[Rfam]
Shown here is a 189-nucleotide sequence from Paraburkholderia tropica, a member of the family "Burkholderia sRNA Bp2_Cand287_SIPHT".

RNA sequence: AAAAAGCCCGCUUUGCGUCGGCAGAAGCGGGCUUUUCGGGAAUUCGGGGGCGCUGUAGCAAAUGAGCGGCGGCCAAUGCUGCACCGUUCGCUUUAGCUGUUUUGGGUUGCCCCGCGUCCGCAAGCUGAGAUCAAAUCGACGCAAGCCCACAUGCUAACACGGGAAACGCACAGGCGUUUCCCGUCGCGC
Numbered sequence: 001a002a003a004a005a006g007c008c009c010g011c012u013u014u015g016c017g018u019c020g021g022c023a024g025a026a027g028c029g030g031g032c033u034u035u036u037c038g039g040g041a042a043u044u045c046g047g048g049g050g051c052g053c054u055g056u057a058g059c060a061a062a063u064g065a066g067c068g069g070c071g072g073c074c075a076a077u078g079c080u081g082c083a084c085c086g087u088u089c090g091c092u093u094u095a096g097c098u099g100u101u102u103u104g105g106g107u108u109g110c111c112c113c114g115c116g117u118c119c120g121c122a123a124g125c126u127g128a129g130a131u132c133a134a135a136u137c138g139a140c141g142c143a144a145g146c147c148c149a150c151a152u153g154c155u156a157a158c159a160c161g162g163g164a165a166a167c168g169c170a171c172a173g174g175c176g177u178u179u180c181c182c183g184u185c186g187c188g189c
Stems, first nucleotide, its partner, number of pairs: 004034009014023003043143001045141002057092003064088002066084001068082001071080003093128006104113003114121002158188001160186003
The family's RNA type in Rfam is small RNA. The literature on the family includes a 2012 paper in BMC Genomics by Khoo et al., "Computational discovery and RT-PCR validation of novel Burkholderia conserved and Burkholderia pseudomallei unique sRNAs".